[Rfam]
A member of the RNA family "Enterobacterial sRNA STnc240" from Cedecea neteri, 76 nucleotides long. A search with the family's covariance model found it, with a score of 69 bits. The base pairs follow the family's consensus structure, which was predicted with WAR. Rfam classes the family as a small RNA.
RNA sequence: GCCGUAUGGUGCAAAAUACGCGCCAGCAAAAAUAGAAGACUAACCGACGUUUAAGAGACGUCGGUUAUUUUUUUGC
Numbered sequence: 001g002c003c004g005u006a007u008g009g010u011g012c013a014a015a016a017u018a019c020g021c022g023c024c025a026g027c028a029a030a031a032a033u034a035g036a037a038g039a040c041u042a043a044c045c046g047a048c049g050u051u052u053a054a055g056a057g058a059c060g061u062c063g064g065u066u067a068u069u070u071u072u073u074u075g076c
Base pairs, nucleotide, nucleotide: 011021012020041067042066043065044064045063046062047061048060049059